[Rfam]
Shown here is a 103-nucleotide sequence from Leptotrichia hofstadii, a member of the family "Glycine riboswitch aptamer".
The match comes from Rfam's covariance-model search (51 bits).
The organism belongs to Leptotrichia hofstadii, within Bacteria.
RNA sequence: AUGAAGGUAUGAGGAGAGAUUUUAUUUCAUUUAUAAAUUUUGUAAAUAUGUAAUAAAACACCGAAGAAGUAACUCUUUCAGGUAAAAGGACUCAUAGUGGACG
Dot-bracket structure: .....(.((((((......(((((((.........................))))))).(((((..(((.....))))).))).......)))))).).....
Numbered sequence: 001a002u003g004a005a006g007g008u009a010u011g012a013g014g015a016g017a018g019a020u021u022u023u024a025u026u027u028c029a030u031u032u033a034u035a036a037a038u039u040u041u042g043u044a045a046a047u048a049u050g051u052a053a054u055a056a057a058a059c060a061c062c063g064a065a066g067a068a069g070u071a072a073c074u075c076u077u078u079c080a081g082g083u084a085a086a087a088g089g090a091c092u093c094a095u096a097g098u099g100g101a102c103g
Stems, first nucleotide, its partner, number of pairs: 006098001008096006020058007060083003063079002067077003